The record is a 100-nucleotide RNA from Aeromicrobium flavum, which matches "mraW RNA" in Rfam. The source organism's lineage runs through Bacteria, Actinomycetota, Actinomycetes, Propionibacteriales and Aeromicrobium. Pairs were carried over by alignment from the consensus structure, which is taken from published work.

[Rfam]
RNA sequence: CGCACACGGUGGGGCGCGAUGCCCGCCUGAGGGGUUCUGACGUCACUUCCCCGGCGUCAGAACUCUGCAGGCGGGGAUCGGGCCCCAUCGGUCGUGCCCG
Dot-bracket structure: .........((((((..((..((((((((.(((((((((((((..........))))))))))))).))))))))..))..)))))).............